[Rfam]
RNA: Archaeal large subunit ribosomal RNA, nucleotides 1800 to 2170
RNA sequence: CGGGUGACCCCGGGCCAGGGAACUCGGCAAAUUGGCCCCGUAACUUCGGGAGAAGGGGUGCCUGCGGUCUUAGGGUCCACCCCUGGGACCGCAGGUCGCAGUGGCAAGGGGGACCUGACUGUUUAACAAAAACAUAGGUCCCCGCGAGCCCGUAAGGGUGAGUACGGGGGCUGAAUCCUGGCCACUGGCGGUACGUGAACCCCGGGUACAACCGGGCGAAGCGCCGCUGAAGGCCGGGGGUAACUCUGACCCUCUUAAGGUAGCCAAAUGCCUUGCCGGGUAAGUUCCGGCGUGCAUGAAUGGAUCAACGAGGUCCCCACUGUCCCGGCCCGGGGCCCGGCGAACCCACCUCCAGGUGCACAGUCCUGGGA
Numbered sequence: 001c002g003g004g005u006g007a008c009c010c011c012g013g014g015c016c017a018g019g020g021a022a023c024u025c026g027g028c029a030a031a032u033u034g035g036c037c038c039c040g041u042a043a044c045u046u047c048g049g050g051a052g053a054a055g056g057g058g059u060g061c062c063u064g065c066g067g068u069c070u071u072a073g074g075g076u077c078c079a080c081c082c083c084u085g086g087g088a089c090c091g092c093a094g095g096u097c098g099c100a101g102u103g104g105c106a107a108g109g110g111g112g113a114c115c116u117g118a119c120u121g122u123u124u125a126a127c128a129a130a131a132a133c134a135u136a137g138g139u140c141c142c143c144g145c146g147a148g149c150c151c152g153u154a155a156g157g158g159u160g161a162g163u164a165c166g167g168g169g170g171c172u173g174a175a176u177c178c179u180g181g182c183c184a185c186u187g188g189c190g191g192u193a194c195g196u197g198a199a200c201c202c203c204g205g206g207u208a209c210a211a212c213c214g215g216g217c218g219a220a221g222c223g224c225c226g227c228u229g230a231a232g233g234c235c236g237g238g239g240g241u242a243a244c245u246c247u248g249a250c251c252c253u254c255u256u257a258a259g260g261u262a263g264c265c266a267a268a269u270g271c272c273u274u275g276c277c278g279g280g281u282a283a284g285u286u287c288c289g290g291c292g293u294g295c296a297u298g299a300a301u302g303g304a305u306c307a308a309c310g311a312g313g314u315c316c317c318c319a320c321u322g323u324c325c326c327g328g329c330c331c332g333g334g335g336c337c338c339g340g341c342g343a344a345c346c347c348a349c350c351u352c353c354a355g356g357u358g359c360a361c362a363g364u365c366c367u368g369g370g371a
Base pairs, nucleotide, nucleotide: 001339002338003337004336009334010333011332012331013330014329015328016327018325019324020323035059036058037057038056039055044049060096061095062094063093064092065091066090067089068088069087070086071085072084073083074082075081097101109318110317111316112315113314114313115312116310117309120134121133122132137172138171139170140169141168142167143166144165145162148159149158150157151156175305176304177303178302180235181234182233185232186231187228188227189226190225191224194223195222196221201216202215203214204213205212236254237253238252239251240250241249255259275291276290277289278288279287280286352369353368354367355366356365